[Rfam]
RNA sequence: CAUCUCUGCGAUUCAUGUUAAUAAAUUUAGAGUAGUGGACUGAUCUCUAUUGAUGAUGUAGCAAUUCUGAGUGAUG
Numbered sequence: 001c002a003u004c005u006c007u008g009c010g011a012u013u014c015a016u017g018u019u020a021a022u023a024a025a026u027u028u029a030g031a032g033u034a035g036u037g038g039a040c041u042g043a044u045c046u047c048u049a050u051u052g053a054u055g056a057u058g059u060a061g062c063a064a065u066u067c068u069g070a071g072u073g074a075u076g
Stems, first nucleotide, its partner, number of pairs: 001076004006071001
The family of this 76-nucleotide RNA sequence from Hevea brasiliensis is "Small nucleolar RNA R21". For this family Rfam cites "Identification of 66 box C/D snoRNAs in Arabidopsis thaliana: extensive gene duplications generated multiple isoforms predicting new ribosomal RNA 2'-O-methylation sites" (Barneche et al., J Mol Biol, 2001). Lineage of the source: Eukaryota > Streptophytina > Magnoliopsida > Micrandreae > Hevea. The match comes from Rfam's covariance-model search (50 bits).